The record is an 86-nucleotide RNA from Streptomyces dangxiongensis, which matches "nrdJ RNA" in Rfam. Rfam classes the family as a small RNA.
[Rfam]
RNA sequence: GCCUGUUGCGGGUGGCUAGCUGAGGGUGCCCGCAACACACGACAGAACACCGUGCCACGGGAACAUACGCGGCACUUCAGGGCGUU
Numbered sequence: 001g002c003c004u005g006u007u008g009c010g011g012g013u014g015g016c017u018a019g020c021u022g023a024g025g026g027u028g029c030c031c032g033c034a035a036c037a038c039a040c041g042a043c044a045g046a047a048c049a050c051c052g053u054g055c056c057a058c059g060g061g062a063a064c065a066u067a068c069g070c071g072g073c074a075c076u077u078c079a080g081g082g083c084g085u086u
Stems, first nucleotide, its partner, number of pairs: 004037011016026002052075005058069002